[Rfam]
RNA: Mason-Pfizer monkey virus packaging signal
Organism: Nannospalax galili
RNA sequence: UGGGGCCCAAUGUGGGGCCUGGAUACUGGGGGCAUUGUGAGGGAGAUGACAGAAAAAGGAAGGAGUGCACUCACUAAAUCUCAAGCAAUUUGGAGACACACCGAGGGAGCCUGCCGCGACAGAACCGAAAGUAAGUCAAGCCGUCUGAAUCAUGGGGCAAGAAUUAAGACAGCAUCAGAUUUAUGUUAUACAGUUGAGGGAGGCUCUCAAGACAAGAGGAGUAAAGGUUAAGACUGUGGAUUUAUUUCAUUUAUUUGAUUUUGUAAAGGACAUUUGUCCCU
Numbered sequence: 001u002g003g004g005g006c007c008c009a010a011u012g013u014g015g016g017g018c019c020u021g022g023a024u025a026c027u028g029g030g031g032g033c034a035u036u037g038u039g040a041g042g043g044a045g046a047u048g049a050c051a052g053a054a055a056a057a058g059g060a061a062g063g064a065g066u067g068c069a070c071u072c073a074c075u076a077a078a079u080c081u082c083a084a085g086c087a088a089u090u091u092g093g094a095g096a097c098a099c100a101c102c103g104a105g106g107g108a109g110c111c112u113g114c115c116g117c118g119a120c121a122g123a124a125c126c127g128a129a130a131g132u133a134a135g136u137c138a139a140g141c142c143g144u145c146u147g148a149a150u151c152a153u154g155g156g157g158c159a160a161g162a163a164u165u166a167a168g169a170c171a172g173c174a175u176c177a178g179a180u181u182u183a184u185g186u187u188a189u190a191c192a193g194u195u196g197a198g199g200g201a202g203g204c205u206c207u208c209a210a211g212a213c214a215a216g217a218g219g220a221g222u223a224a225a226g227g228u229u230a231a232g233a234c235u236g237u238g239g240a241u242u243u244a245u246u247u248c249a250u251u252u253a254u255u256u257g258a259u260u261u262u263g264u265a266a267a268g269g270a271c272a273u274u275u276g277u278c279c280c281u
Stems, first nucleotide, its partner, number of pairs: 006031003012026003035049004085132002090129002097122001102118002105115002140158002144156004166207001168204001170202001216256003220252002225243005266281001268279004